RNA sequence: CUGGGCGUUGGGUAACUGGCGCUGAACACCGUGGAGAAGUCAGCAAAGGGCAUAGUAGGCGACGCCACCGCCGAAGGCC
Numbered sequence: 001c002u003g004g005g006c007g008u009u010g011g012g013u014a015a016c017u018g019g020c021g022c023u024g025a026a027c028a029c030c031g032u033g034g035a036g037a038a039g040u041c042a043g044c045a046a047a048g049g050g051c052a053u054a055g056u057a058g059g060c061g062a063c064g065c066c067a068c069c070g071c072c073g074a075a076g077g078c079c
Stems, first nucleotide, its partner, number of pairs: 002026001004023008040047001049079003058072004
RNA: Group II catalytic intron D1-D4-1